[Rfam]
The family of this 84-nucleotide sequence from Rhinopithecus roxellana is "mir-548 microRNA precursor family". The family's consensus secondary structure was predicted with WAR.
RNA sequence: UAUUAGGUUGGUGCAAAAGUCAUCGCGGUUUUUGCCAUUACUUUCAAUGGCAAAAACCGCGAUGACUUUUGCACUAACCUAGUA
Numbered sequence: 001u002a003u004u005a006g007g008u009u010g011g012u013g014c015a016a017a018a019g020u021c022a023u024c025g026c027g028g029u030u031u032u033u034g035c036c037a038u039u040a041c042u043u044u045c046a047a048u049g050g051c052a053a054a055a056a057c058c059g060c061g062a063u064g065a066c067u068u069u070u071g072c073a074c075u076a077a078c079c080u081a082g083u084a
Stems, first nucleotide, its partner, number of pairs: 001084039